[Rfam]
RNA sequence: GUGCUUGUCAGAGUGGGUGUGAUGUGUGAGUCUACUGGUCAUAUCACAGCCAGCUUUGAUGAGCGCUG
Numbered sequence: 001g002u003g004c005u006u007g008u009c010a011g012a013g014u015g016g017g018u019g020u021g022a023u024g025u026g027u028g029a030g031u032c033u034a035c036u037g038g039u040c041a042u043a044u045c046a047c048a049g050c051c052a053g054c055u056u057u058g059a060u061g062a063g064c065g066c067u068g
Stems, first nucleotide, its partner, number of pairs: 005062009014052003018048005025043003
A member of the RNA family "mir-2 microRNA precursor family" from Portunus trituberculatus, 68 nucleotides long. The organism belongs to Portunus, within Eukaryota. A search with the family's covariance model found it, with a score of 52 bits. Its family is annotated with RISC complex and miRNA-mediated post-transcriptional gene silencing in the Gene Ontology. The family has 56 seed sequences and 918 matches in Rfam 15.1.